[Rfam]
Notes
The record is a 76-nucleotide RNA sequence from Alligator mississippiensis, which matches "Mammalian CPEB3 ribozyme" in Rfam. The base pairs follow the family's consensus structure, which is taken from published work. Rfam describes the family as follows. The mammalian CPEB3 ribozyme is a self cleaving RNA located in the second intron of the CPEB3 gene which belongs to a family of genes regulating messenger RNA polyadenylation. Taxonomically the source falls in Alligator (Eukaryota, Teleostomi, Archelosauria, Alligatorinae).

RNA sequence: AGUUGCUAUAACGGCCACAACAGAAAUGUUCACAUCGUGGCCCCGGUCAGAUUCCAGCAAAUCUGCAAAUUCUGCU
Numbered sequence: 001a002g003u004u005g006c007u008a009u010a011a012c013g014g015c016c017a018c019a020a021c022a023g024a025a026a027u028g029u030u031c032a033c034a035u036c037g038u039g040g041c042c043c044c045g046g047u048c049a050g051a052u053u054c055c056a057g058c059a060a061a062u063c064u065g066c067a068a069a070u071u072c073u074g075c076u
Stems, first nucleotide, its partner, number of pairs: 013042004019076001021074005026038003048065006